[Rfam]
RNA: c-di-GMP-I-GGC riboswitch aptamer
RNA sequence: UUUGUUAAAGGCAAACCUAUCGAAAGGUAGGGACGCAAAGCUAUGGGUCUACACCUAUUUUGGUAUGACUGCCAGGCUGCCAAAA
Numbered sequence: 001u002u003u004g005u006u007a008a009a010g011g012c013a014a015a016c017c018u019a020u021c022g023a024a025a026g027g028u029a030g031g032g033a034c035g036c037a038a039a040g041c042u043a044u045g046g047g048u049c050u051a052c053a054c055c056u057a058u059u060u061u062g063g064u065a066u067g068a069c070u071g072c073c074a075g076g077c078u079g080c081c082a083a084a085a
Stems, first nucleotide, its partner, number of pairs: 001085001003082002011036002016031006034071001039078004044074003047069003